[Rfam]
RNA sequence: GUUAAAAAAAGGCCGAAUCCAGUUCAUCACAAGAGCUGGUACGGGGGAUUCUUUACAUGGGGUGAAUGUUCGUCUGUCUCGAACUAGGGAAAACCUCUUCCCGAAUCCGUCAACUAACCUCGAAGGCCGCAGGAGGAACAACU
Numbered sequence: 001g002u003u004a005a006a007a008a009a010a011g012g013c014c015g016a017a018u019c020c021a022g023u024u025c026a027u028c029a030c031a032a033g034a035g036c037u038g039g040u041a042c043g044g045g046g047g048a049u050u051c052u053u054u055a056c057a058u059g060g061g062g063u064g065a066a067u068g069u070u071c072g073u074c075u076g077u078c079u080c081g082a083a084c085u086a087g088g089g090a091a092a093a094c095c096u097c098u099u100c101c102c103g104a105a106u107c108c109g110u111c112a113a114c115u116a117a118c119c120u121c122g123a124a125g126g127c128c129g130c131a132g133g134a135g136g137a138a139c140a141a142c143u
Stems, first nucleotide, its partner, number of pairs: 011128004019039007042122005051059001060108003068084004087102004

Notes:
A member of the RNA family "c-di-AMP riboswitch aptamer (ydaO/yuaA leader)" from Paenibacillus sp. FSL H7-0331, 143 nucleotides long. Lineage of the source: Bacteria > Bacillota > Bacilli > Paenibacillaceae > Paenibacillus.